Description
A member of the RNA family "SAM (S-adenosyl methionine) riboswitch aptamer" from Pseudonocardia endophytica, 114 nucleotides long. The match comes from Rfam's covariance-model search (109 bits). Rfam's curators write: SAM-IV is a mRNA element that regulates gene expression via direct sensing of S-adenosylmethionine (SAM or AdoMet). SAM-IV riboswitches share conserved nucleotide positions with the previously described SAM-I riboswitches sequence analysis and molecular recognition experiments suggest that SAM-I and SAM-IV riboswitches share similar ligand binding sites, but have different scaffolds.

RNA sequence: GGUCACGAGCGUCAGCGCGAAGCCCCGGCUAGCUGACCGGCAACCCUCCUCCGCGGUGGGGUGCCCCGGGUGAUGACCCGGCCGGCGCGAUCCCGCGACCGGCAAGCGCGGAUC
Numbered sequence: 001g002g003u004c005a006c007g008a009g010c011g012u013c014a015g016c017g018c019g020a021a022g023c024c025c026c027g028g029c030u031a032g033c034u035g036a037c038c039g040g041c042a043a044c045c046c047u048c049c050u051c052c053g054c055g056g057u058g059g060g061g062u063g064c065c066c067c068g069g070g071u072g073a074u075g076a077c078c079c080g081g082c083c084g085g086c087g088c089g090a091u092c093c094c095g096c097g098a099c100c101g102g103c104a105a106g107c108g109c110g111g112a113u114c
Stems, first nucleotide, its partner, number of pairs: 001078004009038001011037006021030002039065003044061003048056002081103005086097004